Shown here is a 91-nucleotide RNA sequence from Paractinoplanes ferrugineus, a member of the family "c-di-GMP-II-GAG riboswitch aptamer". The base pairs follow the family's consensus structure, which is taken from published work. The literature on the family includes a 2017 paper in Proc Natl Acad Sci U S A by Weinberg et al., "Bioinformatic analysis of riboswitch structures uncovers variant classes with altered ligand specificity". NCBI's taxonomy places the organism under Bacteria, Bacillati, Actinomycetes, Micromonosporaceae, Paractinoplanes. Its Rfam clan is "c-di-GMP_II riboswitch clan".
RNA sequence: UUCCGGCGGGGAGACGCAGAACCGGGCCGAGCUCCACUCGGUCACCCUCGACCGGCCCGGUGAGUCAGUGGUGAGACCGCCCCCAUGUGAU
Numbered sequence: 001u002u003c004c005g006g007c008g009g010g011g012a013g014a015c016g017c018a019g020a021a022c023c024g025g026g027c028c029g030a031g032c033u034c035c036a037c038u039c040g041g042u043c044a045c046c047c048u049c050g051a052c053c054g055g056c057c058c059g060g061u062g063a064g065u066c067a068g069u070g071g072u073g074a075g076a077c078c079g080c081c082c083c084c085a086u087g088u089g090a091u
Base pairs, nucleotide, nucleotide: 002090003089006086008084009083010082011081013066014065015064022060023059024058025057026056027055028054029053040078041077042074043073044072045071046070